The record is a 65-nucleotide sequence from Acer yangbiense, which matches "Small nucleolar RNA U49" in Rfam.
The literature on the family includes a 2001 paper in RNA by Brown et al., "Multiple snoRNA gene clusters from Arabidopsis".
Gene Ontology terms of the family: RNA processing and nucleolus.
Rfam classes the family as a C/D-box small nucleolar RNA.
The organism belongs to Acer, within Eukaryota.
The family is grouped with related families in Rfam's "SNORD49 clan".
[Rfam]
Nucleotides: 065
Stems, first nucleotide, its partner, number of pairs: 014059002031050006
Number, partner (000 for none) and nucleotide at each position: 001000u002000c003000c004000c005000g006000a007000u008000g009000a010000g011000g012000a013000a014059g015058c016000a017000a018000a019000c020000c021000c022000a023000a024000a025000a026000g027000a028000u029000a030000g031050g032049a033048a034047g035046u036045g037000c038000c039000g040000u041000a042000u043000g044000a045036c046035a047034c048033u049032u050031u051000a052000a053000a054000c055000g056000c057000a058015g059014c060000g061000g062000c063000a064000a065000c